[Rfam]
Rfam assigns this 105-nucleotide sequence to the family "Methylobacterium-1 RNA".
The family's RNA type in Rfam is small RNA.
Pairs were carried over by alignment from the consensus structure, which is taken from published work.
RNA sequence: AAAGUCGGAAUGGGUGUGUAAAGAUUUCUGACAGGAAGAGGGAAACAAGCAACCCUCGUUCGGUGCGGGUAAUCAUUCCAACGGUUCCGCAUUGAUGCCGCUGCU
Numbered sequence: 001a002a003a004g005u006c007g008g009a010a011u012g013g014g015u016g017u018g019u020a021a022a023g024a025u026u027u028c029u030g031a032c033a034g035g036a037a038g039a040g041g042g043a044a045a046c047a048a049g050c051a052a053c054c055c056u057c058g059u060u061c062g063g064u065g066c067g068g069g070u071a072a073u074c075a076u077u078c079c080a081a082c083g084g085u086u087c088c089g090c091a092u093u094g095a096u097g098c099c100g101c102u103g104c105u
Stems, first nucleotide, its partner, number of pairs: 004032006010025002038057005060095009071086004